The family of this 174-nucleotide RNA is "Streptomyces sRNA scr5239". Rfam links the family to the GO terms negative regulation of translation and mRNA binding. The base pairs follow the family's consensus structure, which is taken from published work. For this family Rfam cites "Identification of metE as a second target of the sRNA scr5239 in Streptomyces coelicolor" (Vockenhuber et al., PLoS One, 2015). It scores 104 bits against the family's covariance model.
RNA sequence: CUUCCGCCCUCCCCGCACAGGAGAGCGGAUCGAGGCAUCCGCGCUCUCUGCCCUGACCGCGCGGGCGCCUCUCCCGGCCGACGGCACCGCACACCGCCGGCCGAGCGGGCCGUCCGGUGGACGGUCACAUUCCGGGCUGCGGUGCCGGACGGGCCGAGGGUCCCGUCCUGGCGC
Numbered sequence: 001c002u003u004c005c006g007c008c009c010u011c012c013c014c015g016c017a018c019a020g021g022a023g024a025g026c027g028g029a030u031c032g033a034g035g036c037a038u039c040c041g042c043g044c045u046c047u048c049u050g051c052c053c054u055g056a057c058c059g060c061g062c063g064g065g066c067g068c069c070u071c072u073c074c075c076g077g078c079c080g081a082c083g084g085c086a087c088c089g090c091a092c093a094c095c096g097c098c099g100g101c102c103g104a105g106c107g108g109g110c111c112g113u114c115c116g117g118u119g120g121a122c123g124g125u126c127a128c129a130u131u132c133c134g135g136g137c138u139g140c141g142g143u144g145c146c147g148g149a150c151g152g153g154c155c156g157a158g159g160g161u162c163c164c165g166u167c168c169u170g171g172c173g174c
Stems, first nucleotide, its partner, number of pairs: 003029004009023004032071005038065004043060002045056002074124003078120003083115002128144004133139002147168007